Record summary:
The family of this 67-nucleotide sequence from Frankia casuarinae is "Transposase-2 RNA".
RNA sequence: GAAGCGGGAACCGAGCGCGGCUUCGGCCGAUCAGACUCGGGGCGCCUCGCCGAGAGGCAAGGCGGCA
Numbered sequence: 001g002a003a004g005c006g007g008g009a010a011c012c013g014a015g016c017g018c019g020g021c022u023u024c025g026g027c028c029g030a031u032c033a034g035a036c037u038c039g040g041g042g043c044g045c046c047u048c049g050c051c052g053a054g055a056g057g058c059a060a061g062g063c064g065g066c067a
Base pairs, nucleotide, nucleotide: 011040012039013038014037015036018029019028020027021026044063045062046061047060049058050057051056
NCBI's taxonomy places the organism under Bacteria, Bacillati, Actinomycetota, Frankiaceae, Frankia.